A member of the RNA family "mir-301 microRNA precursor family" from Xiphorhynchus elegans, 84 nucleotides long. A search with the family's covariance model found it, with a score of 95 bits. Pairs were carried over by alignment from the consensus structure, which was predicted with WAR.
RNA sequence: UGCUCCCUGGUGCUCUGACUUUAUUGCACUACUGUUCUGUACAGCGAGCAGUGCAAUAGUAUUGUCAAAGCAUCUGAGGGCAGA
Dot-bracket structure: .(((..(.((((((.((((...((((((((...(.......).......))))))))......)))).)))))).)..)))...